[Rfam]
Shown here is a 74-nucleotide RNA sequence from Streptococcus suis, a member of the family "L17 ribosomal protein downstream element".

RNA sequence: UGAGUGUUAUGAUGAUGGAAUCCUAUUCUGAUUCUUAGUCUAGCUCUGGUCUACCGCUGAGCUUAUCUCAGCGG
Numbered sequence: 001u002g003a004g005u006g007u008u009a010u011g012a013u014g015a016u017g018g019a020a021u022c023c024u025a026u027u028c029u030g031a032u033u034c035u036u037a038g039u040c041u042a043g044c045u046c047u048g049g050u051c052u053a054c055c056g057c058u059g060a061g062c063u064u065a066u067c068u069c070a071g072c073g074g
Base pairs, nucleotide, nucleotide: 002046003045004044005043011040012039013038017035018034019033020032021031022030054074055073056072057071058070059069060068061067
Rfam's curators put it in the seed alignment.